[Rfam]
RNA: Eukaryotic large subunit ribosomal RNA, nucleotides 1 to 423
Organism: Desmophyllum pertusum
RNA sequence: UGACCUCAGAUCAGGCAAGGCUACCCGCUGAAUUUAAGCAUAUUAAUAAGCGGAGGAAAAGAAACUAACAAGGAUUCCCUCAGUAACGGCGAGUGAAGCGGGACCAGCUCAAAUUUGAAAUCUCCGAUGCCUGCAUCGGCGAGUUGUAGUUGCGAGAAGCACUUUCUAGGUGGAUCGGUCGUGCCUAAGUUGCUUGGAACAGCACGUCGCAGAGGGUGACAACCCCGUCUGUGGCGCGGCCGGCCGCCGACGAUGUGCUUUCGAAGAGUCGGGUUGUUUGGGAAUGCAGCCCAAAACGGGUGGUAAACUCCAUCUAAAGCUAAAUACUGGCGUGAGACCGAUAGCGAACAAGUACCGUGAGGGAAAGAUGAAAAGAACUUUGAAAAGAGAGUUAAAAAGUACGUGAAACCGUUAAAAGGGAAA
Dot-bracket structure: .......................((((((.....((....))......))))).).........((....))...((((......((.....)).....))))..((((..((((..((.((.((((........)))).)).))..))))....((((((.(.((......(.(((((((((((...(.((((......)))))..(...)..((.......)).......))))))))))).)......)).))))).))........(((((((........))))))).....(((((........)))))..)))).................................((....))...............((((....))))..................................